RNA sequence: UCUUCAUUUCACUCACUCUCUCACCGGUCAGAGCGACGAGGGAGUGAGCGAAAUGAAGAGA
Number, nucleotide and partner (000 for none) at each position: 001u059002c058003u057004u056005c055006a054007u053008u000009u000010c050011a000012c048013u047014c046015a045016c044017u043018c000019u041020c040021u039022c038023a000024c000025c000026g000027g000028u000029c000030a000031g000032a000033g000034c000035g000036a000037c000038g022039a021040g020041g019042g000043a017044g016045u015046g014047a013048g012049c000050g010051a000052a000053a007054u006055g005056a004057a003058g002059a001060g000061a000
This 61-nucleotide sequence from Pristionchus pacificus belongs to the Rfam family "mir-8364 microRNA precursor family".
The family's consensus secondary structure was predicted with RNAalifold.
The organism belongs to Pristionchus, within Eukaryota.